Shown here is a 76-nucleotide RNA sequence from Sinocyclocheilus anshuiensis, a member of the family "mir-1 microRNA precursor family". The family has 137 seed sequences and 4,474 matches in Rfam 15.1. It scores 59 bits against the family's covariance model. For this family Rfam cites "microRNAs: tiny regulators with great potential" (Ambros, Cell, 2001). The organism belongs to Sinocyclocheilus, within Eukaryota. The base pairs follow the family's consensus structure, which was predicted with RNAalifold. About the family: This family represents the microRNA (miRNA) mir-1 family. miRNAs are transcribed as ~70nt precursors (modelled here) and subsequently processed by the Dicer enzyme to give a ~22nt product. In this case the mature sequence comes from the 3' arm of the precursor. The extents of the hairpin precursors are not generally known and are estimated based on hairpin prediction.

RNA sequence: UUUGAGACGACAUACUUCCUUAUAUCCACAUAUACAGAAUCAAUCUAUGGAAUGUAAGGAAGUGUGUGUUCUCAGA
Numbered sequence: 001u002u003u004g005a006g007a008c009g010a011c012a013u014a015c016u017u018c019c020u021u022a023u024a025u026c027c028a029c030a031u032a033u034a035c036a037g038a039a040u041c042a043a044u045c046u047a048u049g050g051a052a053u054g055u056a057a058g059g060a061a062g063u064g065u066g067u068g069u070u071c072u073c074a075g076a
Base pairs, nucleotide, nucleotide: 007070010067011066012065013064014063015062016061017060018059019058020057021056022055023054024053025052029049030048031047032046